[Rfam]
RNA sequence: UCCCCCGCCUCCACUCCCUGGGCGGGUCCGGCACUCCCCAAGCCGGAAAGCGUGGCCCGAUGGCUCUCCCCAAGUCAUCGGGUUUUUUUAU
Dot-bracket structure: ...((((((...........))))))((((((.........)))))).......(((((((((((.......)))))))))))........
A member of the RNA family "Burkholderia RNA 7 (anti-hemB)" from Solimonas marina, 91 nucleotides long.
Rfam classes the family as a small RNA.
This RNA motif was identified by computational search in b-proteobacteria Burkholderia. Co-purified with Hfq, expression confirmed by Northern blot.
On this family, see Weinberg et al., Nucleic Acids Res 2007: "Identification of 22 candidate structured RNAs in bacteria using the CMfinder comparative genomics pipeline".